A member of the RNA family "mir-399 microRNA precursor family" from Coffea arabica, 103 nucleotides long. On this family, see Jones-Rhoades and Bartel, Mol Cell 2004: "Computational Identification of Plant MicroRNAs and Their Targets, Including a Stress-Induced miRNA". mir-399 was identified in both Arabidopsis thaliana and Oryza sativa computationally and was later experimentally verified. mir-399 is thought to target mRNAs coding for a phosphatase transporter. A search with the family's covariance model found it, with a score of 62 bits.
[Rfam]
RNA sequence: UCCAGAAUGGCAGGGCAAUUCUCCUUUGGCAGAAACACCAUCUCCAUUCAUUUCUAUAAGCUGAAGCAUUUCUGCCAAAGGAGAACGGCCCUGACAUUCGUCU
Dot-bracket structure: ....(((((.((((((..(.((((..(((((((((.................................)))))))))..)))).)..)))))).)))))....
Numbered sequence: 001u002c003c004a005g006a007a008u009g010g011c012a013g014g015g016c017a018a019u020u021c022u023c024c025u026u027u028g029g030c031a032g033a034a035a036c037a038c039c040a041u042c043u044c045c046a047u048u049c050a051u052u053u054c055u056a057u058a059a060g061c062u063g064a065a066g067c068a069u070u071u072c073u074g075c076c077a078a079a080g081g082a083g084a085a086c087g088g089c090c091c092u093g094a095c096a097u098u099c100g101u102c103u
Stems, first nucleotide, its partner, number of pairs: 005099005011093006019085001021083004027077009